[Rfam]
RNA sequence: UAUUUCUUUGUAAGAAAAACCUGUAUAAUACCGAAGAUAUGGUUCGGAAGUUUCUACCGGAUAACCGUAAAUUAUCCGACUACAGGAAAAGAGAUUGUUUUU
Numbered sequence: 001u002a003u004u005u006c007u008u009u010g011u012a013a014g015a016a017a018a019a020c021c022u023g024u025a026u027a028a029u030a031c032c033g034a035a036g037a038u039a040u041g042g043u044u045c046g047g048a049a050g051u052u053u054c055u056a057c058c059g060g061a062u063a064a065c066c067g068u069a070a071a072u073u074a075u076c077c078g079a080c081u082a083c084a085g086g087a088a089a090a091g092a093g094a095u096u097g098u099u100u101u102u
Stems, first nucleotide, its partner, number of pairs: 020086006029049001031047005058078007
RNA: Purine riboswitch aptamer
Organism: Tepiditoga spiralis